Shown here is an 89-nucleotide sequence from Sphingomonas sp. NFR15, a member of the family "Glycine riboswitch aptamer".

[Rfam]
RNA sequence: UGGGCAGGCACGGGAGAGUGCGGGGCGACCCGCCGCCGAAGGAGCAACCGCCCCGGAAUCUCUCAGGCAAAGCGGACCGUGCCGGCCGA
Numbered sequence: 001u002g003g004g005c006a007g008g009c010a011c012g013g014g015a016g017a018g019u020g021c022g023g024g025g026c027g028a029c030c031c032g033c034c035g036c037c038g039a040a041g042g043a044g045c046a047a048c049c050g051c052c053c054c055g056g057a058a059u060c061u062c063u064c065a066g067g068c069a070a071a072g073c074g075g076a077c078c079g080u081g082c083c084g085g086c087c088g089a
Stems, first nucleotide, its partner, number of pairs: 007083007020033004035068003038064002042062003048056002
The base pairs follow the family's consensus structure. Taxonomically the source falls in Sphingomonas (Bacteria, Alphaproteobacteria, Sphingomonadales, Sphingomonadaceae).